RNA: mir-9456 microRNA precursor family
Organism: Nematostella vectensis
RNA sequence: CGUGUAGCCGCUGACUCGCGAAAUCCUCGCUACGAGAGGAUUUCGCGAGUCAGCGGCUAUACG
Numbered sequence: 001c002g003u004g005u006a007g008c009c010g011c012u013g014a015c016u017c018g019c020g021a022a023a024u025c026c027u028c029g030c031u032a033c034g035a036g037a038g039g040a041u042u043u044c045g046c047g048a049g050u051c052a053g054c055g056g057c058u059a060u061a062c063g
Stems, first nucleotide, its partner, number of pairs: 001063003006058023